[Rfam]
RNA: TPP riboswitch aptamer (THI element)
RNA sequence: UUCAGCCACAAGGGGAGAUGGAUUAGGCCAUCUGAGAGUAAGGUCCGUUGAAACCUUUGACCCUUUGAACCUGAUCUGGUUGAUACCAGCGUAGGGAUGUGGGAUAUAAAAUGA
Numbered sequence: 001u002u003c004a005g006c007c008a009c010a011a012g013g014g015g016a017g018a019u020g021g022a023u024u025a026g027g028c029c030a031u032c033u034g035a036g037a038g039u040a041a042g043g044u045c046c047g048u049u050g051a052a053a054c055c056u057u058u059g060a061c062c063c064u065u066u067g068a069a070c071c072u073g074a075u076c077u078g079g080u081u082g083a084u085a086c087c088a089g090c091g092u093a094g095g096g097a098u099g100u101g102g103g104a105u106a107u108a109a110a111a112u113g114a
Stems, first nucleotide, its partner, number of pairs: 006102005011064004016058001017032005040057004070095004076089004
Dot-bracket structure: .....(((((((((.((((((......))))).......((((..........)))))..)))).....((((..((((......))))..))))..)))))............